azaaromatic riboswitch aptamer (yjdF RNA): a 106-nucleotide RNA from Deinobacterium chartae.

RNA sequence: GUCACCCGCUCUGAAUGCACGGUCCGGUUGGCAGUCCGGACGCCCGCGAUGUCGGGCCAGUCACCUUCCCCGCGCAACGGGGUCGUCCAAGAGCGGGCGCGCGGCG
Numbered sequence: 001g002u003c004a005c006c007c008g009c010u011c012u013g014a015a016u017g018c019a020c021g022g023u024c025c026g027g028u029u030g031g032c033a034g035u036c037c038g039g040a041c042g043c044c045c046g047c048g049a050u051g052u053c054g055g056g057c058c059a060g061u062c063a064c065c066u067u068c069c070c071c072g073c074g075c076a077a078c079g080g081g082g083u084c085g086u087c088c089a090a091g092a093g094c095g096g097g098c099g100c101g102c103g104g105c106g
Stems, first nucleotide, its partner, number of pairs: 005097007022041006042057005068082005
Dot-bracket structure: ....(((((((..........((((((........))))))(((((......)))))..........(((((.....)))))........))))))).........

Taxonomically the source falls in Deinobacterium (Bacteria, Thermotogati, Deinococcales, Deinococcaceae).